[Rfam]
A member of the RNA family "SAH (S-adenosyl-L-homocysteine) riboswitch aptamer" from Mitsuaria sp. 7, 105 nucleotides long. NCBI's taxonomy places the organism under Bacteria, Pseudomonadati, Pseudomonadota, Sphaerotilaceae, Roseateles. The base pairs follow the family's consensus structure, which is taken from published work.
RNA sequence: GUUUCCGAGGAGCGUUGCGACAGGUCCCGUCACCCGGGUGCCCGCCAGGCUCGGAACGGCGGUGUCGGACUCCCGGACACCGCCUCACAACGGCGCUCACCGACC
Numbered sequence: 001g002u003u004u005c006c007g008a009g010g011a012g013c014g015u016u017g018c019g020a021c022a023g024g025u026c027c028c029g030u031c032a033c034c035c036g037g038g039u040g041c042c043c044g045c046c047a048g049g050c051u052c053g054g055a056a057c058g059g060c061g062g063u064g065u066c067g068g069a070c071u072c073c074c075g076g077a078c079a080c081c082g083c084c085u086c087a088c089a090a091c092g093g094c095g096c097u098c099a100c101c102g103a104c105c
Base pairs, nucleotide, nucleotide: 003056004055005054006053007052008051021044023042024041025040